[Rfam]
RNA sequence: CUCAGGUACGGAGACAUGGUUCCAAACACCAUCGCCGGGAAGAUCUUCGGCUCCAUCUGCUCCCUCAGCGGCGUGCUCGUGAUAGCGCUGCCAGUGCCCGUCAUCGUGUCCAAC
Numbered sequence: 001c002u003c004a005g006g007u008a009c010g011g012a013g014a015c016a017u018g019g020u021u022c023c024a025a026a027c028a029c030c031a032u033c034g035c036c037g038g039g040a041a042g043a044u045c046u047u048c049g050g051c052u053c054c055a056u057c058u059g060c061u062c063c064c065u066c067a068g069c070g071g072c073g074u075g076c077u078c079g080u081g082a083u084a085g086c087g088c089u090g091c092c093a094g095u096g097c098c099c100g101u102c103a104u105c106g107u108g109u110c111c112a113a114c
Base pairs, nucleotide, nucleotide: 002113005110007108008107009106010105011104013102014101015100018097021094037077038076040074049063050062

Overview: Rfam assigns this 114-nucleotide sequence from Oryzias javanicus to the family "Potassium channel RNA editing signal". The organism belongs to Oryzias, within Eukaryota. Its family is annotated with adenosine to inosine editing in the Gene Ontology. The match comes from Rfam's covariance-model search (85 bits). About the family: This family represents a group of sequences related to the human potassium channel Kv1.1 hairpin element which directs the efficient modification of an adenosine to inosine by an adenosine deaminase acting on RNA (ADAR).